[Rfam]
RNA sequence: AGUCUGUUUCAGGGCGGGGUGCAAUUCCCCACCGGCGGUAAAUGGCAUUGCCACAAGCCCGCGACCGGCUGUUGAUGCAGCCGCUGAUCCGGUGUGAUUCCGGGGCCGACGGUAUAGUCCGGAUGAAAGAAACGGAAA
Numbered sequence: 001a002g003u004c005u006g007u008u009u010c011a012g013g014g015c016g017g018g019g020u021g022c023a024a025u026u027c028c029c030c031a032c033c034g035g036c037g038g039u040a041a042a043u044g045g046c047a048u049u050g051c052c053a054c055a056a057g058c059c060c061g062c063g064a065c066c067g068g069c070u071g072u073u074g075a076u077g078c079a080g081c082c083g084c085u086g087a088u089c090c091g092g093u094g095u096g097a098u099u100c101c102g103g104g105g106c107c108g109a110c111g112g113u114a115u116a117g118u119c120c121g122g123a124u125g126a127a128a129g130a131a132a133c134g135g136a137a138a
Stems, first nucleotide, its partner, number of pairs: 003136008017029003031118002033108002035062004057106002066083002088104005110121003
The family of this 138-nucleotide RNA sequence from Subdoligranulum sp. APC924/74 is "FMN riboswitch aptamer (RFN element)". Rfam's curators write: The RFN element is a highly conserved domain that is found frequently in the 5'-untranslated regions of prokaryotic mRNAs that encode for flavin mononucleotide (FMN) biosynthesis and transport proteins. Rfam links the family to the GO term FMN binding. Taxonomically the source falls in Subdoligranulum (Bacteria, Bacillota, Eubacteriales, Oscillospiraceae). For this family Rfam cites "Regulation of riboflavin biosynthesis and transport genes in bacteria by transcriptional and translational attenuation" (Vitreschak et al., Nucleic Acids Res, 2002).